Shown here is a 62-nucleotide RNA sequence from Peptococcaceae bacterium SCADC1_2_3, a member of the family "Fluoride riboswitch aptamer (crcB RNA motif)". The match comes from Rfam's covariance-model search (48 bits). Lineage of the source: Bacteria > Bacillota > Clostridia > Eubacteriales > Peptococcaceae.

RNA sequence: UAUGACAUAGGGAAUGAAGUCUCCCUCAUAAAUGCCAAUUGGCUGAUGACUUCUGCAGAAAA
Numbered sequence: 001u002a003u004g005a006c007a008u009a010g011g012g013a014a015u016g017a018a019g020u021c022u023c024c025c026u027c028a029u030a031a032a033u034g035c036c037a038a039u040u041g042g043c044u045g046a047u048g049a050c051u052u053c054u055g056c057a058g059a060a061a062a
Stems, first nucleotide, its partner, number of pairs: 010025004016053006034043003